[Rfam]
RNA sequence: UCGCCGUGUCGCGACUGGCGUACAGGUGGAUCACCACCGGGGAGCGACGCGCUGUGUGACGACGGGUCGUUCGCCUGGGCCUGGUCC
Numbered sequence: 001u002c003g004c005c006g007u008g009u010c011g012c013g014a015c016u017g018g019c020g021u022a023c024a025g026g027u028g029g030a031u032c033a034c035c036a037c038c039g040g041g042g043a044g045c046g047a048c049g050c051g052c053u054g055u056g057u058g059a060c061g062a063c064g065g066g067u068c069g070u071u072c073g074c075c076u077g078g079g080c081c082u083g084g085u086c087c
Stems, first nucleotide, its partner, number of pairs: 003053001005051008015041002017075004026037004064082005
RNA: ZMP/ZTP riboswitch aptamer (pfl RNA motif)
Organism: Isoptericola dokdonensis